[Rfam]
RNA sequence: GGUCCGAUGCCACGUCGCCGGUAGCCAAGAGCAGUGACCGGCGAUGCUAUGAUUGGACCGAUAUAAAUUCCAUGUUUCGCUUGCUGAUAGGAACCUGUGGAUCUGAAACGGUGUGAUCUACGGAGCCGUUUUCGGCGAUUACAGUU
Numbered sequence: 001g002g003u004c005c006g007a008u009g010c011c012a013c014g015u016c017g018c019c020g021g022u023a024g025c026c027a028a029g030a031g032c033a034g035u036g037a038c039c040g041g042c043g044a045u046g047c048u049a050u051g052a053u054u055g056g057a058c059c060g061a062u063a064u065a066a067a068u069u070c071c072a073u074g075u076u077u078c079g080c081u082u083g084c085u086g087a088u089a090g091g092a093a094c095c096u097g098u099g100g101a102u103c104u105g106a107a108a109c110g111g112u113g114u115g116a117u118c119u120a121c122g123g124a125g126c127c128g129u130u131u132u133c134g135g136c137g138a139u140u141a142c143a144g145u146u
Base pairs, nucleotide, nucleotide: 002058003057004056005055006054007053008052009050013046014045015044016043017042018041020039021038022037024032025031077138078137079136080135081134090127091126095123096122097121099119100118101117102116103115